[Rfam]
RNA sequence: GUGCUUGCAGGUGCAGCACCAUCAAGAUUCACAUCGAAAUCAUCUUCAACAAGAUGGUUUACAGUUGCUGCAUAUGUACGUAUGAUGAGAAUCUUGAUGAUGCUGCAUCAGCAAACAC
Numbered sequence: 001g002u003g004c005u006u007g008c009a010g011g012u013g014c015a016g017c018a019c020c021a022u023c024a025a026g027a028u029u030c031a032c033a034u035c036g037a038a039a040u041c042a043u044c045u046u047c048a049a050c051a052a053g054a055u056g057g058u059u060u061a062c063a064g065u066u067g068c069u070g071c072a073u074a075u076g077u078a079c080g081u082a083u084g085a086u087g088a089g090a091a092u093c094u095u096g097a098u099g100a101u102g103c104u105g106c107a108u109c110a111g112c113a114a115a116c117a118c
Stems, first nucleotide, its partner, number of pairs: 010109009020099011032087005
RNA: mir-172 microRNA precursor family
Organism: Eragrostis curvula